[Rfam]
RNA sequence: GGUAUCGCGAGGUUCUGUGCGGAGGACCAGAAGGCAAAACUCGGAACAGAUAGCAUAUACCAUGUUGGCUAGCAGGAUAGGAUAACCUUGCAAGACGUGGGAACGUCCAAAACCACAAUUAUAUCCUGUAUAGCCUCUCGGAGUUUCUAGAAUGAAAUCCUUUGG
Numbered sequence: 001g002g003u004a005u006c007g008c009g010a011g012g013u014u015c016u017g018u019g020c021g022g023a024g025g026a027c028c029a030g031a032a033g034g035c036a037a038a039a040c041u042c043g044g045a046a047c048a049g050a051u052a053g054c055a056u057a058u059a060c061c062a063u064g065u066u067g068g069c070u071a072g073c074a075g076g077a078u079a080g081g082a083u084a085a086c087c088u089u090g091c092a093a094g095a096c097g098u099g100g101g102a103a104c105g106u107c108c109a110a111a112a113c114c115a116c117a118a119u120u121a122u123a124u125c126c127u128g129u130a131u132a133g134c135c136u137c138u139c140g141g142a143g144u145u146u147c148u149a150g151a152a153u154g155a156a157a158u159c160c161u162u163u164g165g
Base pairs, nucleotide, nucleotide: 001016002015004013005012006011028165030163031162034159039153041151042150044148045145046144047143060141061140064137069133070132071131072129073128074127075126076125077124078123080108081107082106083105086101087100088099
RNA: Group II catalytic intron D1-D4-3